This 149-nucleotide RNA sequence from Carlito syrichta belongs to the Rfam family "U12 minor spliceosomal RNA". Gene Ontology terms of the family: mRNA branch site recognition, U12 snRNP and pre-mRNA branch point binding. The source organism's lineage runs through Eukaryota, Metazoa, Eumetazoa, Theria and Carlito. It is annotated as a spliceosomal small nuclear RNA. A reference for the family is Tarn and Steitz (1997), "Pre-mRNA splicing: the discovery of a new spliceosome doubles the challenge", Trends Biochem Sci. The match comes from Rfam's covariance-model search (116 bits). The family has 62 seed sequences and 2,106 matches in Rfam 15.1.
RNA sequence: AUGCCUUAAACUUAUGAGUAAGAAAAAUAAUGAUUUGGGGUGACACCCGAGUCCUUACUGCUAAUGUGAGAUGAAAUUUGGGUGGGUAAAGGUUGCCCUUAAGGUGACCCACCUACUUUGCAGGAUGCCUGGGAGUCGCGAUCUGCCCA
Numbered sequence: 001a002u003g004c005c006u007u008a009a010a011c012u013u014a015u016g017a018g019u020a021a022g023a024a025a026a027a028u029a030a031u032g033a034u035u036u037g038g039g040g041u042g043a044c045a046c047c048c049g050a051g052u053c054c055u056u057a058c059u060g061c062u063a064a065u066g067u068g069a070g071a072u073g074a075a076a077u078u079u080g081g082g083u084g085g086g087u088a089a090a091g092g093u094u095g096c097c098c099u100u101a102a103g104g105u106g107a108c109c110c111a112c113c114u115a116c117u118u119u120g121c122a123g124g125a126u127g128c129c130u131g132g133g134a135g136u137c138g139c140g141a142u143c144u145g146c147c148c149a
Base pairs, nucleotide, nucleotide: 005022006021007020008019032053033052034051035050036049037048038047039046054070055069056068057067058066083149084148085147086146087145090144091143092142093141094140095139096138099133100132102130103129104128105127106126108124109123112120